The family of this 176-nucleotide RNA sequence from Pseudoalteromonas xiamenensis is "Lysine riboswitch aptamer".
Taxonomically the source falls in Pseudoalteromonas (Bacteria, Gammaproteobacteria, Alteromonadales, Pseudoalteromonadaceae).

[Rfam]
RNA sequence: AAACACAGAAGAGGUGCAAUGCCUAGGUAGUUAGUGGGAGAGGACGAUACUCUACGAACACUAAUGAGGGAGAGCAUUGCCGAGAGUAAAGGCUAAUUCGUCGUGGUCUUUUCUCGGUCUUUGGGGCUGAAUCCUCAGGACUGUCACCAACUCACUGGUGGAGAGCUUCUGGCAAU
Numbered sequence: 001a002a003a004c005a006c007a008g009a010a011g012a013g014g015u016g017c018a019a020u021g022c023c024u025a026g027g028u029a030g031u032u033a034g035u036g037g038g039a040g041a042g043g044a045c046g047a048u049a050c051u052c053u054a055c056g057a058a059c060a061c062u063a064a065u066g067a068g069g070g071a072g073a074g075c076a077u078u079g080c081c082g083a084g085a086g087u088a089a090a091g092g093c094u095a096a097u098u099c100g101u102c103g104u105g106g107u108c109u110u111u112u113c114u115c116g117g118u119c120u121u122u123g124g125g126g127c128u129g130a131a132u133c134c135u136c137a138g139g140a141c142u143g144u145c146a147c148c149a150a151c152u153c154a155c156u157g158g159u160g161g162a163g164a165g166c167u168u169c170u171g172g173c174a175a176u
Stems, first nucleotide, its partner, number of pairs: 006171006016080007024072001030065007084115003088111008116142004121138006144161006